This 134-nucleotide RNA sequence from Anaeromicropila populeti belongs to the Rfam family "Group II catalytic intron D1-D4-4". Rfam 15.1 lists 840 matches to the family in 506 species. Rfam's curators write: Group II introns are found in rRNA, tRNA and mRNA of organelles in fungi, plants and protists, and also in mRNA in bacteria. Its family is annotated with Group II intron splicing in the Gene Ontology.

[Rfam]
RNA sequence: UAACAGGUGAAAGUCCUGUAGAGGUAAAGGUAGGGAAGCCUCUUAGUCAGUAACCAACGUAGUGAGAGAUUGGUGCGUUGAAGCGUUACGGAAUGUUCAGAAAUGAGCAGACAAACUGAUGGGUUGUAACAUAA
Numbered sequence: 001u002a003a004c005a006g007g008u009g010a011a012a013g014u015c016c017u018g019u020a021g022a023g024g025u026a027a028a029g030g031u032a033g034g035g036a037a038g039c040c041u042c043u044u045a046g047u048c049a050g051u052a053a054c055c056a057a058c059g060u061a062g063u064g065a066g067a068g069a070u071u072g073g074u075g076c077g078u079u080g081a082a083g084c085g086u087u088a089c090g091g092a093a094u095g096u097u098c099a100g101a102a103a104u105g106a107g108c109a110g111a112c113a114a115a116c117u118g119a120u121g122g123g124u125u126g127u128a129a130c131a132u133a134a
Base pairs, nucleotide, nucleotide: 020043021042022041023040024039050089051088052087053086054085055080056079057078058077059076060075064071065070094109095108096107097106098105099104111127112126113125